Nucleotides: 268
Base pairs, nucleotide, nucleotide: 001268002267003266004265005264006263008056010054011053012030013029014028015027017025019023034052035051036050037049038048061261062260063259064258065257066256067255071251072250073249074248075247077244078243079242080241081240082239083238084237085236086235090232091231093227094226095225096224097223105221106220107218108217109216115213116212117211118210119209120208121207122206123205124201125200126199127198129196130192131191133190134189135188136187137186138183139182140181141180142179143178149174150173151172152171157166158165159164
Number, partner (000 for none) and nucleotide at each position: 001268c002267c003266g004265c005264g006263c007000u008056a009000a010054g011053c012030g013029g014028g015027g016000a017025g018000c019023u020000g021000g022000c023019g024000a025017u026000g027015c028014c029013c030012u031000g032000a033000a034052c035051c036050u037049g038048c039000g040000a041000u042000c043000g044000c045000c046000u047000a048038g049037c050036a051035g052034g053011g054010c055000c056008u057000a058000g059000a060000u061261c062260c063259c064258c065257g066256c067255c068000c069000g070000a071251g072250g073249c074248g075247g076000u077244c078243c079242g080241g081240g082239u083238u084237c085236g086235g087000u088000g089000g090232a091231g092000g093227c094226c095225g096224g097223u098000g099000u100000c101000a102000u103000g104000u105221g106220c107218g108217g109216c110000g111000u112000c113000g114000a115213u116212g117211g118210u119209c120208c121207g122206g123205u124201c125200c126199c127198g128000g129196g130192c131191a132000a133190u134189g135188g136187g137186g138183g139182c140181c141180c142179g143178u144000g145000a146000a147000c148000c149174g150173u151172g152171u153000c154000a155000g156000g157166g158165c159164c160000g161000g162000g163000a164159g165158g166157c167000a168000g169000c170000a171152g172151c173150a174149c175000u176000a177000a178143g179142c180141g181140g182139g183138u184000c185000a186137c187136c188135c189134c190133a191131u192130g193000u194000g195000c196129u197000g198127c199126g200125g201124g202000g203000c204000a205123g206122c207121c208120g209119g210118g211117c212116c213115g214000g215000a216109g217108c218107u219000g220106g221105c222000g223097g224096c225095c226094g227093g228000a229000c230000g231091c232090u233000c234000g235086c236085c237084g238083g239082g240081u241080c242079u243078g244077g245000u246000c247075c248074c249073g250072u251071c252000g253000a254000c255067g256066g257065c258064g259063g260062g261061g262000u263006g264005c265004g266003c267002g268001g
The family of this 268-nucleotide RNA from Rubrobacter xylanophilus is "Bacterial large signal recognition particle RNA". By type it is a non-coding RNA gene. The match comes from Rfam's covariance-model search (143 bits). About the family: The signal recognition particle (SRP) is a universally conserved ribonucleoprotein involved in the co-translational targeting of proteins to membranes.